[Rfam]
RNA sequence: UAGACAUCUGUGACAGAGUUCGCAAUGUUUC
Numbered sequence: 001u002a003g004a005c006a007u008c009u010g011u012g013a014c015a016g017a018g019u020u021c022g023c024a025a026u027g028u029u030u031c
Stems, first nucleotide, its partner, number of pairs: 002030006009024005014018001
RNA: Iron response element II